[Rfam]
RNA sequence: AUAUUCAUUGUCUACCUGAGCUAGAAUACAAGUAGUUGGCGUCUUCAGAGACACUUGUAUGCUAGCUCAGGUAGAUAUUGAAUGA
Numbered sequence: 001a002u003a004u005u006c007a008u009u010g011u012c013u014a015c016c017u018g019a020g021c022u023a024g025a026a027u028a029c030a031a032g033u034a035g036u037u038g039g040c041g042u043c044u045u046c047a048g049a050g051a052c053a054c055u056u057g058u059a060u061g062c063u064a065g066c067u068c069a070g071g072u073a074g075a076u077a078u079u080g081a082a083u084g085a
Stems, first nucleotide, its partner, number of pairs: 002084006009077016026060008041052004
mir-643 microRNA precursor family: an 85-nucleotide RNA from Homo sapiens.
Rfam links the family to the GO terms RISC complex and miRNA-mediated post-transcriptional gene silencing.
The literature on the family includes a 2009 paper in Comput Biol Chem by Baev et al., "Computational identification of novel microRNA homologs in the chimpanzee genome".
The family's consensus secondary structure was predicted with RNAalifold.
The organism belongs to Homo, within Eukaryota.